[Rfam]
A member of the RNA family "Purine riboswitch aptamer" from Priestia filamentosa, 102 nucleotides long.
RNA sequence: AAAUUCUAAGAAGCGAACUCUCGUAUAAUAGUGGGGAUAUGGCCCACAAGUUUCUACCCGACGACCGUAAAUUGUCGGACUAUGAGAGAAAGUAUCUUACAC
Numbered sequence: 001a002a003a004u005u006c007u008a009a010g011a012a013g014c015g016a017a018c019u020c021u022c023g024u025a026u027a028a029u030a031g032u033g034g035g036g037a038u039a040u041g042g043c044c045c046a047c048a049a050g051u052u053u054c055u056a057c058c059c060g061a062c063g064a065c066c067g068u069a070a071a072u073u074g075u076c077g078g079a080c081u082a083u084g085a086g087a088g089a090a091a092g093u094a095u096c097u098u099a100c101a102c
Stems, first nucleotide, its partner, number of pairs: 018088008029049001031047005058078007
From the family's description: Riboswitches are metabolite binding domains within certain messenger RNAs that serve as precision sensors for their corresponding targets. Rfam 15.1 lists 4,097 matches to the family in 1,411 species. The organism belongs to Priestia, within Bacteria.